Rfam assigns this 90-nucleotide RNA sequence to the family "PhotoRC-II RNA".
The sequence is in the family's curated seed alignment.
Rfam classes the family as a cis-regulatory element.
RNA sequence: UCCUCAUCUGUUUAUCCCCCUAACCAAGACCACGGGGUUAUAAUGUCUUCUUAUCCACUAGUGAAGGGAUUAGUGGAAAUAUCGUAUCGC
Number, nucleotide and partner (000 for none) at each position: 001u000002c000003c000004u000005c000006a000007u000008c000009u000010g000011u000012u000013u000014a038015u037016c036017c035018c034019c000020c000021u000022a000023a000024c000025c000026a000027a048028g047029a046030c045031c000032a000033c000034g018035g017036g016037g015038u014039u000040a000041u000042a000043a000044u000045g030046u029047c028048u027049u000050c000051u000052u000053a000054u000055c076056c075057a074058c073059u072060a071061g070062u000063g000064a000065a000066g000067g000068g000069a000070u061071u060072a059073g058074u057075g056076g055077a000078a000079a000080u000081a000082u000083c000084g000085u000086a000087u000088c000089g000090c000